[Rfam]
RNA sequence: AGAGCGCCAGUGAUGUUACAUCCAUAACUCAUCCUUGCACUGUGAGGCAACCGGUGAAGAAAAAAUUGGGGGAAUAUAUAGUCUGAGAUGCGU
Numbered sequence: 001a002g003a004g005c006g007c008c009a010g011u012g013a014u015g016u017u018a019c020a021u022c023c024a025u026a027a028c029u030c031a032u033c034c035u036u037g038c039a040c041u042g043u044g045a046g047g048c049a050a051c052c053g054g055u056g057a058a059g060a061a062a063a064a065a066u067u068g069g070g071g072g073a074a075u076a077u078a079u080a081g082u083c084u085g086a087g088a089u090g091c092g093u
Stems, first nucleotide, its partner, number of pairs: 002093001004091003008087001